A member of the RNA family "small nucleolar RNA snoR134" from Papaver nudicaule, 134 nucleotides long. The family's RNA type in Rfam is H/ACA-box small nucleolar RNA.
[Rfam]
RNA sequence: UGGCAUUAGUUAAGCUUUUCUGAAAUUUACAAUGACGAAAAAAGCCCCAAUGCUCGUGCUAUAUUAUGCCGUUUAGUGUUGCAGGUUCGCUUAGUUUCUUCAACAGCUUUUGUGUCAAAAAAAUGGCUACAUUU
Number, nucleotide and partner (000 for none) at each position: 001u000002g000003g053004c052005a000006u000007u000008a000009g000010u000011u000012a000013a000014g045015c044016u043017u041018u040019u038020c037021u000022g000023a000024a000025a000026u000027u000028u000029a000030c000031a000032a000033u000034g000035a000036c000037g020038a019039a000040a018041a017042a000043a016044g015045c014046c000047c000048c000049a000050a000051u000052g004053c003054u000055c000056g000057u000058g000059c000060u000061a000062u000063a000064u000065u000066a000067u000068g127069c126070c125071g124072u123073u122074u121075a000076g000077u117078g116079u000080u114081g113082c112083a111084g110085g109086u000087u000088c000089g107090c106091u105092u000093a000094g000095u000096u000097u000098c000099u000100u000101c000102a000103a000104c000105a091106g090107c089108u000109u085110u084111u083112g082113u081114g080115u000116c078117a077118a000119a000120a000121a074122a073123a072124u071125g070126g069127c068128u000129a000130c000131a000132u000133u000134u000
A reference for the family is Chen and Wu (2009), "Mining small RNA sequencing data: a new approach to identify small nucleolar RNAs in Arabidopsis", Nucleic Acids Res.